[Rfam]
This 93-nucleotide sequence from Tricholaema leucomelas belongs to the Rfam family "Small nucleolar RNA SNORD91 family". The family's RNA type in Rfam is C/D-box small nucleolar RNA. The source organism's lineage runs through Eukaryota, Tetrapoda, Saurischia, Coelurosauria and Tricholaema lacrymosa. Pairs were carried over by alignment from the consensus structure. On this family, see Huttenhofer et al., EMBO J 2001: "RNomics: an experimental approach that identifies 201 candidates for novel, small, non-messenger RNAs in mouse". Gene Ontology terms of the family: nucleolus and RNA processing.

RNA sequence: ACAGGAAGCCUGUGAUGUCUUGGCCGUGGUGUCUGAACCUGGCUGAAGGACUCUUCUGAAGACUCCCAUUUAGGCUCUGAGGCUUCCAGGUAC
Numbered sequence: 001a002c003a004g005g006a007a008g009c010c011u012g013u014g015a016u017g018u019c020u021u022g023g024c025c026g027u028g029g030u031g032u033c034u035g036a037a038c039c040u041g042g043c044u045g046a047a048g049g050a051c052u053c054u055u056c057u058g059a060a061g062a063c064u065c066c067c068a069u070u071u072a073g074g075c076u077c078u079g080a081g082g083c084u085u086c087c088a089g090g091u092a093c
Base pairs, nucleotide, nucleotide: 004087005086006085007084008083009082010081
Dot-bracket structure: ...(((((((......................................................................)))))))......